[Rfam]
RNA sequence: GCCACGGGGGAUCGCCCCCCGUCAGCGAGGUUUCGCCCACGGGGGCGCUUCAC
Numbered sequence: 001g002c003c004a005c006g007g008g009g010g011a012u013c014g015c016c017c018c019c020c021g022u023c024a025g026c027g028a029g030g031u032u033u034c035g036c037c038c039a040c041g042g043g044g045g046c047g048c049u050u051c052a053c
Stems, first nucleotide, its partner, number of pairs: 016045007025036004
Shown here is a 53-nucleotide RNA sequence from Oceaniovalibus guishaninsula, a member of the family "ffh sRNA". It is annotated as a small RNA. A reference for the family is Meyer et al. (2009), "Identification of candidate structured RNAs in the marine organism 'Candidatus Pelagibacter ubique'", BMC Genomics. It scores 55 bits against the family's covariance model.